RNA: Archaeal large subunit ribosomal RNA, nucleotides 906 to 1355
Organism: Halopenitus malekzadehii
RNA sequence: CCGACCGAAACAUGUCGAAGCAUGACCUUCAGCGAGGUAGUAUGCGGGGUAGAGCGACCGAUUGGAUGACCCGCCUCCGAGAGGAGUCGGCCAUCCUGUCGAACUCCGAACCUGCAUACGCUGUGGACCUGGAGAGUCCGGUGUGCGGGGUAAGCCUGUGCACCGUGAGGGGAACAACCCAGAGCGGGGUUAAGGUCCCAAAGUGUAGACUAAGUGCGAUUGGAAGGUGGUCUCAAGCCCUAAACAGCCGGGAGGUGAGCUUAGAAGCAGCUACCCGCUAAGAAAAGCGUAACAGCUUACCGGCCGAGGUUUGAGGCGCCCAAAAUGAUCGGGGCUCAAGUCUACCACCGAGACCCUGCCGCACCCGUAAGAGGGUGACCGCGUAGGUCGGCGUCCCGUUCGGAUGGAAGCACGGGUGAGAACUCGCGUGGACCGUUCGGGAACGAAAAU
Numbered sequence: 001c002c003g004a005c006c007g008a009a010a011c012a013u014g015u016c017g018a019a020g021c022a023u024g025a026c027c028u029u030c031a032g033c034g035a036g037g038u039a040g041u042a043u044g045c046g047g048g049g050u051a052g053a054g055c056g057a058c059c060g061a062u063u064g065g066a067u068g069a070c071c072c073g074c075c076u077c078c079g080a081g082a083g084g085a086g087u088c089g090g091c092c093a094u095c096c097u098g099u100c101g102a103a104c105u106c107c108g109a110a111c112c113u114g115c116a117u118a119c120g121c122u123g124u125g126g127a128c129c130u131g132g133a134g135a136g137u138c139c140g141g142u143g144u145g146c147g148g149g150g151u152a153a154g155c156c157u158g159u160g161c162a163c164c165g166u167g168a169g170g171g172g173a174a175c176a177a178c179c180c181a182g183a184g185c186g187g188g189g190u191u192a193a194g195g196u197c198c199c200a201a202a203g204u205g206u207a208g209a210c211u212a213a214g215u216g217c218g219a220u221u222g223g224a225a226g227g228u229g230g231u232c233u234c235a236a237g238c239c240c241u242a243a244a245c246a247g248c249c250g251g252g253a254g255g256u257g258a259g260c261u262u263a264g265a266a267g268c269a270g271c272u273a274c275c276c277g278c279u280a281a282g283a284a285a286a287g288c289g290u291a292a293c294a295g296c297u298u299a300c301c302g303g304c305c306g307a308g309g310u311u312u313g314a315g316g317c318g319c320c321c322a323a324a325a326u327g328a329u330c331g332g333g334g335c336u337c338a339a340g341u342c343u344a345c346c347a348c349c350g351a352g353a354c355c356c357u358g359c360c361g362c363a364c365c366c367g368u369a370a371g372a373g374g375g376u377g378a379c380c381g382c383g384u385a386g387g388u389c390g391g392c393g394u395c396c397c398g399u400u401c402g403g404a405u406g407g408a409a410g411c412a413c414g415g416g417u418g419a420g421a422a423c424u425c426g427c428g429u430g431g432a433c434c435g436u437u438c439g440g441g442a443a444c445g446a447a448a449a450u
Stems, first nucleotide, its partner, number of pairs: 001391006011024005026136001027134006036122003040119008052107001053105002060100003064096005073088001075086004140164009169180003184359007194349003203346001205345006226320003230317010247304005254276002258272003278282001283298001287296002360381002362377005392445001394442005401435003410429002413426005